[Rfam]
RNA sequence: UAUAUUUGCCGUUCAAUUCUUAUAAGCAGAAUUGUUUACAUAAAAAUUAUUUAAACAAAUAUUGGAAUG
Dot-bracket structure: .............((((((.........))))))...................................
Numbered sequence: 001u002a003u004a005u006u007u008g009c010c011g012u013u014c015a016a017u018u019c020u021u022a023u024a025a026g027c028a029g030a031a032u033u034g035u036u037u038a039c040a041u042a043a044a045a046a047u048u049a050u051u052u053a054a055a056c057a058a059a060u061a062u063u064g065g066a067a068u069g
Stems, first nucleotide, its partner, number of pairs: 014034006